[Rfam]
RNA sequence: CUGAUGACGGCGUAUGGGUGGAAAUCGGAAUCGAUCGCCCAAUUCCCCUCCGCACCGAUAAGGUGUGCCAGGUGGGGGAGCGCCUUGACGUCAG
Dot-bracket structure: (((((...(((((.((((.....((((....))))..))))...(((((.((((((.....))))))......))))).))))).....)))))
Numbered sequence: 001c002u003g004a005u006g007a008c009g010g011c012g013u014a015u016g017g018g019u020g021g022a023a024a025u026c027g028g029a030a031u032c033g034a035u036c037g038c039c040c041a042a043u044u045c046c047c048c049u050c051c052g053c054a055c056c057g058a059u060a061a062g063g064u065g066u067g068c069c070a071g072g073u074g075g076g077g078g079a080g081c082g083c084c085u086u087g088a089c090g091u092c093a094g
Stems, first nucleotide, its partner, number of pairs: 001094005009084005015041004024035004045078005051067006
L4-Archaeoglobi ribosomal protein leades: a 94-nucleotide RNA sequence. The family's consensus secondary structure is taken from published work. It is annotated as a cis-regulatory leader.